Rfam assigns this 58-nucleotide sequence to the family "Antizyme RNA frameshifting stimulation element". The family has 13 seed sequences and 1,595 matches in Rfam 15.1. Rfam describes the family as follows. This family represents a structural element which is found in antizyme mRNA and is known to promote frameshifting. Antizyme genes have have two partially overlapping open reading frames, the second, which encodes the functional protein requires +1 translational frameshifting. This frameshift is stimulated by a pseudoknot present 3' of the frameshift site in the antizyme mRNA. The frameshifting efficiency is dependent on the level of polyamines in the cell, when the polyamine concentration is high frameshifting is more likely to occur which leads to an increase in the quantity of functional antizyme produced. The functional antizyme acts to reduce ornithine decarboxylase (ODC) activity which leads to a drop in polyamines present in the cell. The literature on the family includes a 2004 paper in J Mol Biol by Ivanov et al., "Identification of a new antizyme mRNA +1 frameshifting stimulatory pseudoknot in a subset of diverse invertebrates and its apparent absence in intermediate species". It is one of the family's seed sequences. Rfam classes the family as a frameshift element. The family's consensus secondary structure is taken from published work. Rfam links the family to the GO term translational frameshifting.

RNA sequence: UGAUGUCCCUCACCCAGCCCUGAAGAGCCCAGGUGGGCGAGGGAACAGUCAGCGGAUC
Number, nucleotide and partner (000 for none) at each position: 001u000002g000003a000004u000005g000006u044007c043008c042009c041010u040011c039012a000013c037014c036015c035016a034017g000018c032019c000020c000021u000022g000023a000024a000025g058026a057027g000028c055029c054030c000031a000032g018033g000034u016035g015036g014037g013038c000039g011040a010041g009042g008043g007044a006045a000046c000047a000048g000049u000050c000051a000052g000053c000054g029055g028056a000057u026058c025